[Rfam]
Record summary: This 115-nucleotide RNA sequence from Psychroflexus torquis belongs to the Rfam family "Bacteroidete tryptophan peptide leader RNA". The family's consensus secondary structure is taken from published work. Taxonomically the source falls in Psychroflexus torquis (Bacteria, Flavobacteriales, Flavobacteriaceae, Psychroflexus). Rfam links the family to the GO terms S-adenosylmethionine metabolic process and regulation of gene expression. The family's RNA type in Rfam is cis-regulatory leader.

RNA sequence: UUAUUCUUAUGUUUGCAAGAUGCUUAAAACAAAUAACAAAUCUUGGUGGUGGUCUUUAUUACGUCAAACGUCGUGACUUAGAUCCUGCUAUGUAAAUAUAUCAUAAAGGCUUGUC
Numbered sequence: 001u002u003a004u005u006c007u008u009a010u011g012u013u014u015g016c017a018a019g020a021u022g023c024u025u026a027a028a029a030c031a032a033a034u035a036a037c038a039a040a041u042c043u044u045g046g047u048g049g050u051g052g053u054c055u056u057u058a059u060u061a062c063g064u065c066a067a068a069c070g071u072c073g074u075g076a077c078u079u080a081g082a083u084c085c086u087g088c089u090a091u092g093u094a095a096a097u098a099u100a101u102c103a104u105a106a107a108g109g110c111u112u113g114u115c
Stems, first nucleotide, its partner, number of pairs: 036099001038097001041095001042092001044090003048086002051083001055081002058078001060076001061071003